[Rfam]
RNA: tRNA
RNA sequence: GCCCGCCUAGCUCAAUCGGAUAGAGCGUCAGACUCUUACCGUUCAUUCGACGGUGUGCUGUUCGACAGGCGGGUGUGAUCUGAAGGCUGCGAGUUCGACCCUCGCGGUGGGCU
Numbered sequence: 001g002c003c004c005g006c007c008u009a010g011c012u013c014a015a016u017c018g019g020a021u022a023g024a025g026c027g028u029c030a031g032a033c034u035c036u037u038a039c040c041g042u043u044c045a046u047u048c049g050a051c052g053g054u055g056u057g058c059u060g061u062u063c064g065a066c067a068g069g070c071g072g073g074u075g076u077g078a079u080c081u082g083a084a085g086g087c088u089g090c091g092a093g094u095u096c097g098a099c100c101c102u103c104g105c106g107g108u109g110g111g112c113u
Base pairs, nucleotide, nucleotide: 001112002111003110004109005108006107007106010026011025012024013023028083029082030081031080032079089105090104091103092102093101